Record summary: FMN riboswitch aptamer (RFN element): a 115-nucleotide RNA sequence from Clostridium sp. CAG:7.

[Rfam]
RNA sequence: UAAGAUCUUCAGGGCGGGGUGUGAAUCCCCACCGGUGGUAUAGCCCACGAGCCGCAAGGUAUGAUUCGGUGAAAUUCCGAGGCCGACAGUACAGUCUGGAUGAAAGAAGAUAGAG
Numbered sequence: 001u002a003a004g005a006u007c008u009u010c011a012g013g014g015c016g017g018g019g020u021g022u023g024a025a026u027c028c029c030c031a032c033c034g035g036u037g038g039u040a041u042a043g044c045c046c047a048c049g050a051g052c053c054g055c056a057a058g059g060u061a062u063g064a065u066u067c068g069g070u071g072a073a074a075u076u077c078c079g080a081g082g083c084c085g086a087c088a089g090u091a092c093a094g095u096c097u098g099g100a101u102g103a104a105a106g107a108a109g110a111u112a113g114a115g
Base pairs, nucleotide, nucleotide: 005111006110007109008108009107010106017029018028019027031095032094033085034084035048036047037046038045043083044082053059065081066080067079068078069077087098088097089096